[Rfam]
RNA sequence: UUUUGGGAUAUGCUCCCCCAACGGGGCACAUACUAUCUGGAAGGAUAGACAAU
Numbered sequence: 001u002u003u004u005g006g007g008a009u010a011u012g013c014u015c016c017c018c019c020a021a022c023g024g025g026g027c028a029c030a031u032a033c034u035a036u037c038u039g040g041a042a043g044g045a046u047a048g049a050c051a052a053u
Stems, first nucleotide, its partner, number of pairs: 011028006033048006
RNA: serC leader
Organism: Kordiimonas sediminis